The family of this 146-nucleotide RNA from Aspergillus tamarii is "A. fumigatus sRNA Afu_254". It is annotated as a small RNA. Taxonomically the source falls in Aspergillus subgen. Circumdati (Eukaryota, leotiomyceta, Eurotiomycetidae, Aspergillus). On this family, see Jochl et al., Nucleic Acids Res 2008: "Small ncRNA transcriptome analysis from Aspergillus fumigatus suggests a novel mechanism for regulation of protein synthesis". A search with the family's covariance model found it, with a score of 64 bits.
RNA sequence: CAUCAAAGCCUCCAAUUCAAGUUACAAAACCACUUCGAGAAACCUCUCAAAGCUUUCCAAUUCCAUCAAAAUGUCUCCCUGCUCUUGCAACUGCUGCAGCGGUAACUGCUCUAGCUGCUCCUGCUCUUCCUGCAACGUAAGUAACC
Numbered sequence: 001c002a003u004c005a006a007a008g009c010c011u012c013c014a015a016u017u018c019a020a021g022u023u024a025c026a027a028a029a030c031c032a033c034u035u036c037g038a039g040a041a042a043c044c045u046c047u048c049a050a051a052g053c054u055u056u057c058c059a060a061u062u063c064c065a066u067c068a069a070a071a072u073g074u075c076u077c078c079c080u081g082c083u084c085u086u087g088c089a090a091c092u093g094c095u096g097c098a099g100c101g102g103u104a105a106c107u108g109c110u111c112u113a114g115c116u117g118c119u120c121c122u123g124c125u126c127u128u129c130c131u132g133c134a135a136c137g138u139a140a141g142u143a144a145c146c
Stems, first nucleotide, its partner, number of pairs: 080104004087097003108133002117124002